[Rfam]
RNA sequence: GCUAUGGAGUAUGAUAUCAAACGUUAGUAGUCCGAGUGUAAACGAGGAUGAGAACGCAUACGAUGAAAUAGCAA
Numbered sequence: 001g002c003u004a005u006g007g008a009g010u011a012u013g014a015u016a017u018c019a020a021a022c023g024u025u026a027g028u029a030g031u032c033c034g035a036g037u038g039u040a041a042a043c044g045a046g047g048a049u050g051a052g053a054a055c056g057c058a059u060a061c062g063a064u065g066a067a068a069u070a071g072c073a074a
Stems, first nucleotide, its partner, number of pairs: 001072005009061005022056003030049003033044002

The record is a 74-nucleotide sequence, which matches "RAGATH-18 RNA" in Rfam. Rfam's curators put it in the seed alignment. By type it is a small RNA. Rfam's curators write: Actinobacteria, Firmicutes, Fusobacteria, Thermotogae (1 example).